[Rfam]
RNA sequence: GGAGCAUCUUCUGGAGAGACUGCACAAGCAGCGCCGAAGGAUUCACAAUCUCAGGCAGCCGGACAGAAGACGAGUU
Numbered sequence: 001g002g003a004g005c006a007u008c009u010u011c012u013g014g015a016g017a018g019a020c021u022g023c024a025c026a027a028g029c030a031g032c033g034c035c036g037a038a039g040g041a042u043u044c045a046c047a048a049u050c051u052c053a054g055g056c057a058g059c060c061g062g063a064c065a066g067a068a069g070a071c072g073a074g075u076u
Stems, first nucleotide, its partner, number of pairs: 007070007020031004033056003036052002040050003
Shown here is a 76-nucleotide RNA sequence from Alkalicoccus urumqiensis, a member of the family "Glycine riboswitch aptamer". The organism belongs to Alkalicoccus, within Bacteria. Gene Ontology term of the family: glycine biosynthetic process.